[Rfam]
RNA sequence: AUUAUUAGAACUCAGACUAAAUACACCUUCCUGUGGCAACGUCUGAGUGACCCGCAUCCUGCGGG
Numbered sequence: 001a002u003u004a005u006u007a008g009a010a011c012u013c014a015g016a017c018u019a020a021a022u023a024c025a026c027c028u029u030c031c032u033g034u035g036g037c038a039a040c041g042u043c044u045g046a047g048u049g050a051c052c053c054g055c056a057u058c059c060u061g062c063g064g065g
Base pairs, nucleotide, nucleotide: 011047012046013045014044015043016042017041026036027033051065052064053063054062055061
Description:
Shown here is a 65-nucleotide RNA from Cytobacillus horneckiae, a member of the family "Bacillaceae-1 RNA". It is annotated as a small RNA. The source organism's lineage runs through Bacteria, Bacillati, Bacillota, Bacillaceae and Cytobacillus. Pairs were carried over by alignment from the consensus structure, which is taken from published work. It scores 58 bits against the family's covariance model.